[Rfam]
RNA: Bacterial small subunit ribosomal RNA, nucleotides 571 to 924
Organism: Sodalis endosymbiont of Henestaris halophilus
RNA sequence: GGCGUAAAGAGUACGCAGGCGGCCAAUUAAGUCAGAUGUGAAAUCCCUGGGCUUAACCUAGGAACUGCAUUUGAAACUGAUAGGCUAGAGUCUCGUAGAGGGGGGUAGAAUUCCAGGUGUAGCGGUGAAAUGCGUAGAGAUCUGGAGGAACACCCGUGGCGAAGGCGACCCCCUGGACAAAGACUGACGCUCAGGUACGAAAGCGUGGGGAGCAAACAGGAUUAGAUACCCUGGUAGUCCACGCCGUAAACGAUGUCGAUUUGAAGGUUAGGGCCUUGAUUCCUGACUUUCGAAGCUAACGCGUUAAAUCGACCGCCUGGGGAAUACGACCGCAAGGUUAAAACUCAAAUGAAU
Numbered sequence: 001g002g003c004g005u006a007a008a009g010a011g012u013a014c015g016c017a018g019g020c021g022g023c024c025a026a027u028u029a030a031g032u033c034a035g036a037u038g039u040g041a042a043a044u045c046c047c048u049g050g051g052c053u054u055a056a057c058c059u060a061g062g063a064a065c066u067g068c069a070u071u072u073g074a075a076a077c078u079g080a081u082a083g084g085c086u087a088g089a090g091u092c093u094c095g096u097a098g099a100g101g102g103g104g105g106u107a108g109a110a111u112u113c114c115a116g117g118u119g120u121a122g123c124g125g126u127g128a129a130a131u132g133c134g135u136a137g138a139g140a141u142c143u144g145g146a147g148g149a150a151c152a153c154c155c156g157u158g159g160c161g162a163a164g165g166c167g168a169c170c171c172c173c174u175g176g177a178c179a180a181a182g183a184c185u186g187a188c189g190c191u192c193a194g195g196u197a198c199g200a201a202a203g204c205g206u207g208g209g210g211a212g213c214a215a216a217c218a219g220g221a222u223u224a225g226a227u228a229c230c231c232u233g234g235u236a237g238u239c240c241a242c243g244c245c246g247u248a249a250a251c252g253a254u255g256u257c258g259a260u261u262u263g264a265a266g267g268u269u270a271g272g273g274c275c276u277u278g279a280u281u282c283c284u285g286a287c288u289u290u291c292g293a294a295g296c297u298a299a300c301g302c303g304u305u306a307a308a309u310c311g312a313c314c315g316c317c318u319g320g321g322g323a324a325u326a327c328g329a330c331c332g333c334a335a336g337g338u339u340a341a342a343a344c345u346c347a348a349a350u351g352a353a354u
Stems, first nucleotide, its partner, number of pairs: 001317003009314001011198004018191003022085003026081003030078002032074009046062006089185003093180001095178002100174007111147008122133003159166002203244006212238002217233004255313006263291011295302002319346003328339004